RNA sequence: UCAUAAGAACCGGGGUGCUGGAAUUGGCCGGCUGAGAUUGUAUACCUUAACAUACUGACCCUUAUACCUGAUCUGGGUAAUGCCAGCGUAGGAAUGUGUAUUUAGUGGUCU
Numbered sequence: 001u002c003a004u005a006a007g008a009a010c011c012g013g014g015g016u017g018c019u020g021g022a023a024u025u026g027g028c029c030g031g032c033u034g035a036g037a038u039u040g041u042a043u044a045c046c047u048u049a050a051c052a053u054a055c056u057g058a059c060c061c062u063u064a065u066a067c068c069u070g071a072u073c074u075g076g077g078u079a080a081u082g083c084c085a086g087c088g089u090a091g092g093a094a095u096g097u098g099u100a101u102u103u104a105g106u107g108g109u110c111u
Base pairs, nucleotide, nucleotide: 006099008097012061013060014059017032018031019030020029021028040055041054042053043052067092068091069090070089073086074085075084076083
RNA: TPP riboswitch aptamer (THI element)
Organism: Paenibacillus uliginis